Notes:
A member of the RNA family "c-di-AMP riboswitch aptamer (ydaO/yuaA leader)" from Streptomyces sp. Ag109_O5-10, 161 nucleotides long.
[Rfam]
RNA sequence: CACACACACUCACCCGUGCCCGGCAGGAGCGGGGGACCCACCAGGUAUGACCGCCUGUUCCGGUUCCCGGGACGGCUAGGGGUGUAGCCACGUCCUCCGGUGUGGCCGGGCAGCUCCAGCCCGAACCCGACAGCUCACCUCGCAGGCGCAGGAGAGGAAUG
Number, nucleotide and partner (000 for none) at each position: 001c000002a000003c000004a000005c000006a000007c000008a000009c000010u000011c148012a000013c146014c145015c000016g000017u000018g000019c027020c026021c000022g000023g000024c000025a000026g020027g019028a000029g143030c142031g141032g140033g139034g138035g000036a000037c000038c000039c079040a000041c000042c000043a000044g000045g000046u000047a000048u000049g000050a000051c000052c000053g000054c000055c000056u000057g000058u000059u000060c000061c000062g000063g000064u000065u000066c000067c000068c000069g000070g000071g000072a000073c000074g000075g000076c000077u000078a000079g039080g128081g127082g126083u000084g000085u000086a000087g000088c105089c104090a103091c102092g000093u000094c000095c000096u000097c000098c000099g000100g000101u000102g091103u090104g089105g088106c000107c000108g122109g121110g120111c119112a000113g000114c000115u000116c000117c000118a000119g111120c110121c109122c108123g000124a000125a000126c082127c081128c080129g000130a000131c000132a000133g000134c000135u000136c000137a000138c034139c033140u032141c031142g030143c029144a000145g014146g013147c000148g011149c000150a000151g000152g000153a000154g000155a000156g000157g000158a000159a000160u000161g000